[Rfam]
RNA: Small Cajal body specific RNA 8
Organism: Scleropages formosus
RNA sequence: GGGAGGGGUGAUACUUGGACAGUUCAGAGCAGUGCUCUGUCCAUCACUGACCCUUCCUAUAGCAUCCCUGCUUUCUGAUGACCGCAGCGGAUUGAGGGAAACCGCUACGGACAGGUACGGAGCAGACAAUG
Numbered sequence: 001g002g003g004a005g006g007g008g009u010g011a012u013a014c015u016u017g018g019a020c021a022g023u024u025c026a027g028a029g030c031a032g033u034g035c036u037c038u039g040u041c042c043a044u045c046a047c048u049g050a051c052c053c054u055u056c057c058u059a060u061a062g063c064a065u066c067c068c069u070g071c072u073u074u075c076u077g078a079u080g081a082c083c084g085c086a087g088c089g090g091a092u093u094g095a096g097g098g099a100a101a102c103c104g105c106u107a108c109g110g111a112c113a114g115g116u117a118c119g120g121a122g123c124a125g126a127c128a129a130u131g
Base pairs, nucleotide, nucleotide: 002057003056004055005054006053007052016043017042018041022037025034068125069124070123071122072121073120074119082110083109084108087105088104089103090102